[Rfam]
RNA sequence: CCAUGUUCUGUGACUGACUCGGCUGGCGCCGGACUGUCGGACGCCCGCCGGUCUGUCACAGAACACAAGA
Numbered sequence: 001c002c003a004u005g006u007u008c009u010g011u012g013a014c015u016g017a018c019u020c021g022g023c024u025g026g027c028g029c030c031g032g033a034c035u036g037u038c039g040g041a042c043g044c045c046c047g048c049c050g051g052u053c054u055g056u057c058a059c060a061g062a063a064c065a066c067a068a069g070a
Base pairs, nucleotide, nucleotide: 004065005064006063007062008061009060010059011058012057013056014055016053017052018051020050021049022048025045026044027043
Background:
Shown here is a 70-nucleotide RNA sequence from Acyrthosiphon pisum, a member of the family "mir-3017 microRNA precursor family". It scores 76 bits against the family's covariance model.